[Rfam]
RNA sequence: ACCGCCACGGAAGGCGGUUGUUAUAGCAGAAGCGAUAUUUUGCUUUGUCAAAAUUCGCCAUCAACUGAUGGACAAGGACGUUCAUCAGUUGAUGAGG
Numbered sequence: 001a002c003c004g005c006c007a008c009g010g011a012a013g014g015c016g017g018u019u020g021u022u023a024u025a026g027c028a029g030a031a032g033c034g035a036u037a038u039u040u041u042g043c044u045u046u047g048u049c050a051a052a053a054u055u056c057g058c059c060a061u062c063a064a065c066u067g068a069u070g071g072a073c074a075a076g077g078a079c080g081u082u083c084a085u086c087a088g089u090u091g092a093u094g095a096g097g
Stems, first nucleotide, its partner, number of pairs: 001018006033057003037054006060093014

The family of this 97-nucleotide RNA from Treponema vincentii is "TD-2 RNA". The family is grouped with related families in Rfam's "TD (Treponema denticola) motifs". On this family, see Weinberg et al., Nucleic Acids Res 2007: "Identification of 22 candidate structured RNAs in bacteria using the CMfinder comparative genomics pipeline". A search with the family's covariance model found it, with a score of 54 bits. The source organism's lineage runs through Bacteria, Pseudomonadati, Spirochaetia, Treponematales and Treponema vincentii.